[Rfam]
RNA sequence: GGUUCGAUGCCACGUCGCCGGUAGCCAAAGUUGCAUUGACCGGCGAUGCUAUGAUCGGACCUAUAACAAGCUUCCGCGUUUCGCAUCAUUAUAGGAACCUGUGAACUGAUAAGUUUUCGUUCAUUCACAGAGCCGGUUUUUGCGAUUACAUUC
Number, nucleotide and partner (000 for none) at each position: 001g000002g060003u059004u058005c057006g056007a055008u054009g052010c000011c000012a000013c048014g047015u046016c045017g044018c043019c000020g041021g040022u039023a000024g034025c033026c000027a000028a000029a000030g000031u000032u000033g025034c024035a000036u000037u000038g000039a022040c021041c020042g000043g018044c017045g016046a015047u014048g013049c000050u000051a000052u009053g000054a008055u007056c006057g005058g004059a003060c002061c000062u000063a000064u000065a000066a000067c000068a000069a000070g000071c000072u000073u000074c000075c000076g000077c000078g000079u000080u000081u145082c144083g143084c142085a141086u000087c000088a000089u000090u000091a000092u000093a000094g134095g133096a000097a000098c000099c130100u129101g128102u000103g126104a125105a124106c000107u000108g000109a000110u000111a000112a000113g000114u000115u000116u000117u000118c000119g000120u000121u000122c000123a000124u105125u104126c103127a000128c101129a100130g099131a000132g000133c095134c094135g000136g000137u000138u000139u000140u000141u085142g084143c083144g082145a081146u000147u000148a000149c000150a000151u000152u000153c000
RNA: Small nucleolar RNA snoR2/U65